[Rfam]
RNA sequence: UGGCACCCGAACAGGGACCUGGACACGGGGGAAAAGUGAGGAAGAAGGCACUAAAGUUGGCCGAAAGUGAAAGCGGAAGAAAUUCCUCCGGACGUCGCAGGAACCUGCCGCGUUGGAACCAGAGGUGAGUAACAGUGUCUGAUUAUGGGACAAGAAUUAAGCCAGCAUCAGAUUUAUGUAGGGCAGUUAAAAGAGGCCCUAAAAGCACGAGGAGUAAGGGUUAAAAGUAAUGAUUUAUUUAAAUUUUUUGAUUUCGUAAAGGAUACCUGCCCUU
Numbered sequence: 001u002g003g004c005a006c007c008c009g010a011a012c013a014g015g016g017a018c019c020u021g022g023a024c025a026c027g028g029g030g031g032a033a034a035a036g037u038g039a040g041g042a043a044g045a046a047g048g049c050a051c052u053a054a055a056g057u058u059g060g061c062c063g064a065a066a067g068u069g070a071a072a073g074c075g076g077a078a079g080a081a082a083u084u085c086c087u088c089c090g091g092a093c094g095u096c097g098c099a100g101g102a103a104c105c106u107g108c109c110g111c112g113u114u115g116g117a118a119c120c121a122g123a124g125g126u127g128a129g130u131a132a133c134a135g136u137g138u139c140u141g142a143u144u145a146u147g148g149g150a151c152a153a154g155a156a157u158u159a160a161g162c163c164a165g166c167a168u169c170a171g172a173u174u175u176a177u178g179u180a181g182g183g184c185a186g187u188u189a190a191a192a193g194a195g196g197c198c199c200u201a202a203a204a205g206c207a208c209g210a211g212g213a214g215u216a217a218g219g220g221u222u223a224a225a226a227g228u229a230a231u232g233a234u235u236u237a238u239u240u241a242a243a244u245u246u247u248u249u250g251a252u253u254u255c256g257u258a259a260a261g262g263a264u265a266c267c268u269g270c271c272c273u274u
Base pairs, nucleotide, nucleotide: 006031007030008029015024037045084127086125087123088122093115096112097111098110100108135151136150138149139148140147141146158201159200161197162196163195208250209249210248211247212246213245214244215243218236219235220234221233222232223231259274260273261272262271264269
A member of the RNA family "Mason-Pfizer monkey virus packaging signal" from Rhinopithecus bieti, 274 nucleotides long. The family's consensus secondary structure was predicted with PFOLD. The source organism's lineage runs through Eukaryota, Opisthokonta, Euarchontoglires, Cercopithecoidea and Rhinopithecus.